RNA sequence: CUUACAGAGUUUAUUGGCAUUCUGUCCACCUCCUCGCCAUCAGAAAAACAACAAAACUACAUAAAACAAGACCUCUCUCUAUCUCACAAAUGGAGGUGGGCAUACUGCCAACUGAGCUCUGUUGG
Number, nucleotide and partner (000 for none) at each position: 001c000002u000003u000004a000005c000006a000007g000008a000009g000010u000011u115012u000013a000014u111015u110016g109017g108018c107019a106020u000021u000022c000023u102024g101025u100026c099027c098028a097029c096030c095031u094032c093033c092034u000035c000036g000037c000038c000039a000040u000041c000042a000043g000044a000045a000046a000047a000048a000049c000050a000051a000052c000053a000054a000055a000056a000057c000058u000059a000060c000061a000062u000063a000064a000065a000066a000067c000068a000069a000070g000071a000072c000073c000074u000075c000076u000077c000078u000079c000080u000081a000082u000083c000084u000085c000086a000087c000088a000089a000090a000091u000092g033093g032094a031095g030096g029097u028098g027099g026100g025101c024102a023103u000104a000105c000106u019107g018108c017109c016110a015111a014112c000113u000114g000115a011116g000117c000118u000119c000120u000121g000122u000123u000124g000125g000

The family of this 125-nucleotide RNA sequence from Nyssa sinensis is "MIR394 microRNA precursor family". Pairs were carried over by alignment from the consensus structure, which was predicted with WAR. NCBI's taxonomy places the organism under Eukaryota, Viridiplantae, Embryophyta, Gunneridae, Nyssa. Rfam links the family to the GO terms miRNA-mediated post-transcriptional gene silencing and RISC complex.